Shown here is a 127-nucleotide RNA from Coffea arabica, a member of the family "U11 spliceosomal RNA". Its Rfam clan is "U1 clan". NCBI's taxonomy places the organism under Eukaryota, Viridiplantae, Streptophytina, lamiids, Coffea. It scores 40 bits against the family's covariance model.
[Rfam]
RNA sequence: AAAAAUGAUCGAUUGGCUAAAUAUGCCACUCUUACCCGGGAUUGGUGAGAGCUACAAGGCUAUCAAGAUAUACGGUCGACAAAAUUUGUGGAGGUUUGUAGGGUUGGCUCAUUUGGCCGAUCCUUAG
Numbered sequence: 001a002a003a004a005a006u007g008a009u010c011g012a013u014u015g016g017c018u019a020a021a022u023a024u025g026c027c028a029c030u031c032u033u034a035c036c037c038g039g040g041a042u043u044g045g046u047g048a049g050a051g052c053u054a055c056a057a058g059g060c061u062a063u064c065a066a067g068a069u070a071u072a073c074g075g076u077c078g079a080c081a082a083a084a085u086u087u088g089u090g091g092a093g094g095u096u097u098g099u100a101g102g103g104u105u106g107g108c109u110c111a112u113u114u115g116g117c118c119g120a121u122c123c124u125u126a127g
Stems, first nucleotide, its partner, number of pairs: 009079004014028004029051008052075002056071001058069001100124010
It is annotated as a spliceosomal small nuclear RNA. The family's consensus secondary structure is taken from published work.